[Rfam]
RNA: Group II catalytic intron D1-D4-7
Organism: Marinobacterium lacunae
RNA sequence: CCUGCUGUUCAGCCAGUUGUAGCCUAGGGAUAGUGCGAUUCCAGUAAUGGAGUGGUGCGAAGCUUCCUGACAAUGUAGCCCCGUUUUUCGGUGUGUGCGGCCCGUGAGGGUGCGUGCAUGGAUCCUGCGAGUGACAACGCGGGUGAGGUG
Numbered sequence: 001c002c003u004g005c006u007g008u009u010c011a012g013c014c015a016g017u018u019g020u021a022g023c024c025u026a027g028g029g030a031u032a033g034u035g036c037g038a039u040u041c042c043a044g045u046a047a048u049g050g051a052g053u054g055g056u057g058c059g060a061a062g063c064u065u066c067c068u069g070a071c072a073a074u075g076u077a078g079c080c081c082c083g084u085u086u087u088u089c090g091g092u093g094u095g096u097g098c099g100g101c102c103c104g105u106g107a108g109g110g111u112g113c114g115u116g117c118a119u120g121g122a123u124c125c126u127g128c129g130a131g132u133g134a135c136a137a138c139g140c141g142g143g144u145g146a147g148g149u150g
Base pairs, nucleotide, nucleotide: 002019004017005016006015007014027068028067029066030065033058034057035056036055038053039052040051041050042049043048084091085090092120093119094118095117102109103108124143125142126141127140128139129138
Dot-bracket structure: .(.((((......)))).).......((((..((((.((((((....)))))).))))......))))...............((....))((((......((....)).......))))...((((((........)))))).......